This 157-nucleotide RNA sequence from Ascoidea rubescens belongs to the Rfam family "Small nucleolar RNA snR80". The family's consensus secondary structure was predicted with WAR. Gene Ontology terms of the family: RNA processing and nucleolus. Rfam classes the family as an H/ACA-box small nucleolar RNA. On this family, see Schattner et al., Nucleic Acids Res 2004: "Genome-wide searching for pseudouridylation guide snoRNAs: analysis of the Saccharomyces cerevisiae genome". Clan: SNORA28 clan. NCBI's taxonomy places the organism under Eukaryota, Dikarya, Ascomycota, Saccharomycetes, Ascoidea rubescens.

RNA sequence: AAUAGUUUGACAACACUCUGGAACCUUACCAAGAAUUAUAUUUUGAUAUUAUUCUUGAGCUAUGUUAGGUCCCUAUUUUGGCUCAAACAAGAUAAAACCACCACUUACUCACCUUAAUAUUUGCUUGAUAAAUAUUUCGGUCCAUUUAUACUUUCAC
Numbered sequence: 001a002a003u004a005g006u007u008u009g010a011c012a013a014c015a016c017u018c019u020g021g022a023a024c025c026u027u028a029c030c031a032a033g034a035a036u037u038a039u040a041u042u043u044u045g046a047u048a049u050u051a052u053u054c055u056u057g058a059g060c061u062a063u064g065u066u067a068g069g070u071c072c073c074u075a076u077u078u079u080g081g082c083u084c085a086a087a088c089a090a091g092a093u094a095a096a097a098c099c100a101c102c103a104c105u106u107a108c109u110c111a112c113c114u115u116a117a118u119a120u121u122u123g124c125u126u127g128a129u130a131a132a133u134a135u136u137u138c139g140g141u142c143c144a145u146u147u148a149u150a151c152u153u154u155c156a157c
Stems, first nucleotide, its partner, number of pairs: 007086003020073002023070002026067001028065002031056006100152001112140002117135003121132002